Notes: Shown here is a 305-nucleotide RNA from Brachypodium distachyon, a member of the family "Plant signal recognition particle RNA". The match comes from Rfam's covariance-model search (206 bits). Its family is annotated with signal recognition particle, endoplasmic reticulum targeting and SRP-dependent cotranslational protein targeting to membrane, signal sequence recognition in the Gene Ontology.
[Rfam]
RNA sequence: GCCGAGCUCGUUAGCGUGAGCUUGUAACCCGAGUGGGGGCAUUAAGGGUGGCGUGGACUUUGAUGUAUGGAUGUGAACCUGGGCCGGUAAUGCUACUGAUGGCCCACCCUUUCCAAGUUGCGUAGUGGAUCUGCUGGGGCCUGUGCGAGAGCUGGGCCUCACGGAUCCUAGAGCGGCAGGCACCGCGUGAGGCUGGCUUCACAGAGCAGCAACCACUGCCCGCUUCCAACGGUGGAAGGAUAACGGGCCGCUGCAUUCCUGGGCCGCUUGGGUCUCACAGCCUACUCCAAAGAACCACCACUUUU
Numbered sequence: 001g002c003c004g005a006g007c008u009c010g011u012u013a014g015c016g017u018g019a020g021c022u023u024g025u026a027a028c029c030c031g032a033g034u035g036g037g038g039g040c041a042u043u044a045a046g047g048g049u050g051g052c053g054u055g056g057a058c059u060u061u062g063a064u065g066u067a068u069g070g071a072u073g074u075g076a077a078c079c080u081g082g083g084c085c086g087g088u089a090a091u092g093c094u095a096c097u098g099a100u101g102g103c104c105c106a107c108c109c110u111u112u113c114c115a116a117g118u119u120g121c122g123u124a125g126u127g128g129a130u131c132u133g134c135u136g137g138g139g140c141c142u143g144u145g146c147g148a149g150a151g152c153u154g155g156g157c158c159u160c161a162c163g164g165a166u167c168c169u170a171g172a173g174c175g176g177c178a179g180g181c182a183c184c185g186c187g188u189g190a191g192g193c194u195g196g197c198u199u200c201a202c203a204g205a206g207c208a209g210c211a212a213c214c215a216c217u218g219c220c221c222g223c224u225u226c227c228a229a230c231g232g233u234g235g236a237a238g239g240a241u242a243a244c245g246g247g248c249c250g251c252u253g254c255a256u257u258c259c260u261g262g263g264c265c266g267c268u269u270g271g272g273u274c275u276c277a278c279a280g281c282c283u284a285c286u287c288c289a290a291a292g293a294a295c296c297a298c299c300a301c302u303u304u305u
Stems, first nucleotide, its partner, number of pairs: 001040003004023008028037003044305008053296001055295001058292005065285003069281001072279005079272002081265002084262004090256003094253002100250006108239002111237005117230004122226001124224003128167006135161009145152002168173001175220005187210002193204003